Source information
This 33-nucleotide RNA belongs to the Rfam family "DUF805b RNA". Pairs were carried over by alignment from the consensus structure, which is taken from published work.
RNA sequence: UGAGCGGUACCCGAAAAGCUCAUAGAGUAGGGA
Numbered sequence: 001u002g003a004g005c006g007g008u009a010c011c012c013g014a015a016a017a018g019c020u021c022a023u024a025g026a027g028u029a030g031g032g033a
Base pairs, nucleotide, nucleotide: 002021003020004019005018010032011031012030
The family's RNA type in Rfam is cis-regulatory element. Rfam's curators put it in the seed alignment.